[Rfam]
RNA sequence: UUAUUUUUUUCGCUUAAUCUUAAACAAAAGAACGGGGGAACCAUUUUUGCGGUGCGCAUGUUCCGCUAGGGGUGAAUUCAGUUUUGAAAGGGCUAAGUGUUUCCUGGUCCUAACCCGACAGCUAACCUCGUCAGCGUCUUUAUAGGGAACAG
Numbered sequence: 001u002u003a004u005u006u007u008u009u010u011c012g013c014u015u016a017a018u019c020u021u022a023a024a025c026a027a028a029a030g031a032a033c034g035g036g037g038g039a040a041c042c043a044u045u046u047u048u049g050c051g052g053u054g055c056g057c058a059u060g061u062u063c064c065g066c067u068a069g070g071g072g073u074g075a076a077u078u079c080a081g082u083u084u085u086g087a088a089a090g091g092g093c094u095a096a097g098u099g100u101u102u103c104c105u106g107g108u109c110c111u112a113a114c115c116c117g118a119c120a121g122c123u124a125a126c127c128u129c130g131u132c133a134g135c136g137u138c139u140u141u142a143u144a145g146g147g148a149a150c151a152g
Stems, first nucleotide, its partner, number of pairs: 011136004018031003032131006042069001070116003078087003090110004
Dot-bracket structure: ..........((((...(((........)))((((((....(..........................)(((.....(((....)))..((((.............))))...))).........)))))).))))................
RNA: c-di-AMP riboswitch aptamer (ydaO/yuaA leader)
Organism: Bacillus sp. V59.32b